[Rfam]
RNA sequence: GUGACAGAAGAGAGUGAGCACACGGCCGGGCGUGACGGCACCGGCGGGCGUGCCGUCGCGGCCGCGUGCUCACUGCUCUUUCUGUCAU
Numbered sequence: 001g002u003g004a005c006a007g008a009a010g011a012g013a014g015u016g017a018g019c020a021c022a023c024g025g026c027c028g029g030g031c032g033u034g035a036c037g038g039c040a041c042c043g044g045c046g047g048g049c050g051u052g053c054c055g056u057c058g059c060g061g062c063c064g065c066g067u068g069c070u071c072a073c074u075g076c077u078c079u080u081u082c083u084g085u086c087a088u
Base pairs, nucleotide, nucleotide: 001088002087003086004085005084006083007082008081009080010078011077012076013074014073015072016071017070018069019068020067021066023064024063025062026061027060028059

Rfam assigns this 88-nucleotide RNA sequence to the family "mir-156 microRNA precursor family". This family represents the plant microRNA (miRNA) precursor mir-156. Rfam 15.1 lists 1,401 matches to the family in 221 species.